[Rfam]
RNA sequence: GCACUCAGGGAUAGAAUAGCGGUCCACUUAGCAGCCCACUUUUCUAUCCCUGGGACUGG
Numbered sequence: 001g002c003a004c005u006c007a008g009g010g011a012u013a014g015a016a017u018a019g020c021g022g023u024c025c026a027c028u029u030a031g032c033a034g035c036c037c038a039c040u041u042u043u044c045u046a047u048c049c050c051u052g053g054g055a056c057u058g059g
Stems, first nucleotide, its partner, number of pairs: 005053009015043002018040002021037002
This 59-nucleotide RNA from Monodelphis domestica belongs to the Rfam family "mir-1544 microRNA precursor family". The base pairs follow the family's consensus structure, which was predicted with RNAalifold.